[Rfam]
RNA: MIR821 microRNA precursor family
Organism: Oryza nivara
RNA sequence: GAUUUCAACUGAAAAAGUCAUCCACAACAAAAUUGUAUAACUCAUCAAGAGCUACAACUUUUAUUUUGGUCAUUUCUUCAUCAGAUAAAGCGAUAGUAACAUUGUUCACAAAAUUUACAUAUCUCUCUUAUAACUUAUGAAACCAUAUGCGGGAUAUGUAAAUUUUGUAAACAAUGUUACUAUCACUUUGUCGGAUGAAGAAAUGACCAAAAUAAAAGUUGUAGCUCUUGAUGAGUUCUACAACUUUUAUGUUCAUGACUUUUUCAGCUGAAAUU
Numbered sequence: 001g002a003u004u005u006c007a008a009c010u011g012a013a014a015a016a017g018u019c020a021u022c023c024a025c026a027a028c029a030a031a032a033u034u035g036u037a038u039a040a041c042u043c044a045u046c047a048a049g050a051g052c053u054a055c056a057a058c059u060u061u062u063a064u065u066u067u068g069g070u071c072a073u074u075u076c077u078u079c080a081u082c083a084g085a086u087a088a089a090g091c092g093a094u095a096g097u098a099a100c101a102u103u104g105u106u107c108a109c110a111a112a113a114u115u116u117a118c119a120u121a122u123c124u125c126u127c128u129u130a131u132a133a134c135u136u137a138u139g140a141a142a143c144c145a146u147a148u149g150c151g152g153g154a155u156a157u158g159u160a161a162a163u164u165u166u167g168u169a170a171a172c173a174a175u176g177u178u179a180c181u182a183u184c185a186c187u188u189u190g191u192c193g194g195a196u197g198a199a200g201a202a203a204u205g206a207c208c209a210a211a212a213u214a215a216a217a218g219u220u221g222u223a224g225c226u227c228u229u230g231a232u233g234a235g236u237u238c239u240a241c242a243a244c245u246u247u248u249a250u251g252u253u254c255a256u257g258a259c260u261u262u263u264u265c266a267g268c269u270g271a272a273a274u275u
Base pairs, nucleotide, nucleotide: 014262015261016260017259018258019257020256021255024252026250030246031245033243034242035241036240037239039237040236041235042234044232045231046230047229048228049227050226051225052224053223055221056220057219058218059217060216061215062214063213064212065211066210067209069207070206071205072204073203074202075201077199078198079197080196081195084192085191086190087189088188089187090186092184094182095181096180097179098178099177101175102174103173104172105171106170108168109167110166111165112164114162115161117159118158119157120156121155122154131145135141136140